This 187-nucleotide RNA sequence from Halolactibacillus alkaliphilus belongs to the Rfam family "Lysine riboswitch aptamer". The family's consensus secondary structure is taken from published work.
RNA sequence: AGUGGGUAUAGAGGUUGCAUAAGAUAUGAGUAAUAAAACAUAGAGUCAUAAACACUCCGUGAUGUUUUUUUGAAAGGGUCUUAUGCCGAAGGAUAGAAGCGGUUUAUGCGUUUUUAUGCUGGUGUUGUAUUUAAGAGGUACAACAUUGUCAUAUAGGUUAUAUACUAUAUGGAGGGCUAUCUCACGC
Numbered sequence: 001a002g003u004g005g006g007u008a009u010a011g012a013g014g015u016u017g018c019a020u021a022a023g024a025u026a027u028g029a030g031u032a033a034u035a036a037a038a039c040a041u042a043g044a045g046u047c048a049u050a051a052a053c054a055c056u057c058c059g060u061g062a063u064g065u066u067u068u069u070u071u072g073a074a075a076g077g078g079u080c081u082u083a084u085g086c087c088g089a090a091g092g093a094u095a096g097a098a099g100c101g102g103u104u105u106a107u108g109c110g111u112u113u114u115u116a117u118g119c120u121g122g123u124g125u126u127g128u129a130u131u132u133a134a135g136a137g138g139u140a141c142a143a144c145a146u147u148g149u150c151a152u153a154u155a156g157g158u159u160a161u162a163u164a165c166u167a168u169a170u171g172g173a174g175g176g177c178u179a180u181c182u183c184a185c186g187c
Stems, first nucleotide, its partner, number of pairs: 006182001008180004017086009033070001035068006090120002093117009121147011149172007

Its family is annotated with lysine biosynthetic process in the Gene Ontology. The organism belongs to Halolactibacillus, within Bacteria. It scores 106 bits against the family's covariance model.